Overview: A member of the RNA family "Small nucleolar RNA SNORA64/SNORA10 family" from Catagonus wagneri, 130 nucleotides long. Rfam links the family to the GO terms nucleolus and RNA processing.

RNA sequence: CCUCUCUCAGCUCCGCUUAAUCACAUUUUUGUGUGUGAUUGGCGUAUUUCCAAAGAGAGAGAGGAAGGGCCCUCCUAAUGCACGGCAGACCGGCCCACAUGGCCUCUCUGCUCCUAGGAGUGCGACAACU
Number, nucleotide and partner (000 for none) at each position: 001c000002c063003u062004c061005u060006c059007u058008c057009a000010g000011c055012u054013c000014c000015g051016c000017u000018u000019a040020a039021u038022c037023a036024c035025a034026u033027u000028u000029u000030u000031g000032u000033g026034u025035g024036u023037g022038a021039u020040u019041g000042g000043c000044g000045u000046a000047u000048u000049u000050c000051c015052a000053a000054a012055g011056a000057g008058a007059g006060a005061g004062a003063g002064g000065a000066a000067g000068g000069g000070c000071c000072c120073u119074c118075c117076u116077a000078a115079u000080g113081c000082a000083c000084g000085g000086c000087a109088g108089a107090c000091c000092g104093g103094c102095c101096c000097a000098c000099a000100u000101g095102g094103c093104c092105u000106c000107u089108c088109u087110g000111c000112u000113c080114c000115u078116a076117g075118g074119a073120g072121u000122g000123c000124g000125a000126c000127a000128a000129c000130u000
On this family, see Narayanan et al., EMBO J 1999: "Nucleolar localization signals of box H/ACA small nucleolar RNAs". NCBI's taxonomy places the organism under Eukaryota, Opisthokonta, Craniata, Tetrapoda, Catagonus. Rfam describes the family as follows. This family belongs to the H/ACA class of small nucleolar RNAs (snoRNAs) which act as guides in the the modification of uridines to pseudouridines. This family includes the human snoRNAs U64 and ACA10 and mouse MBI-29. Pairs were carried over by alignment from the consensus structure, which is taken from published work.